[Rfam]
RNA sequence: CCCUGCGCUCAAGUGAUCACAGGCUGCCCAUGUUCUGUUCAUUGGUAGUGCAGGCAGAGGAAACGUGAAAAGGGUUGUCCCAUGUCUGGAGGGUCCACAACCUCAACCUUCCAGUUCUGGGAGCUUUCCCACA
Numbered sequence: 001c002c003c004u005g006c007g008c009u010c011a012a013g014u015g016a017u018c019a020c021a022g023g024c025u026g027c028c029c030a031u032g033u034u035c036u037g038u039u040c041a042u043u044g045g046u047a048g049u050g051c052a053g054g055c056a057g058a059g060g061a062a063a064c065g066u067g068a069a070a071a072g073g074g075u076u077g078u079c080c081c082a083u084g085u086c087u088g089g090a091g092g093g094u095c096c097a098c099a100a101c102c103u104c105a106a107c108c109u110u111c112c113a114g115u116u117c118u119g120g121g122a123g124c125u126u127u128c129c130c131a132c133a
Base pairs, nucleotide, nucleotide: 002054003053004052005051006050007049008048009047012043013042014041015040016039018037019036022034023033024032065130067129069127070126071125072124084116086114087113088112089110090109091108092107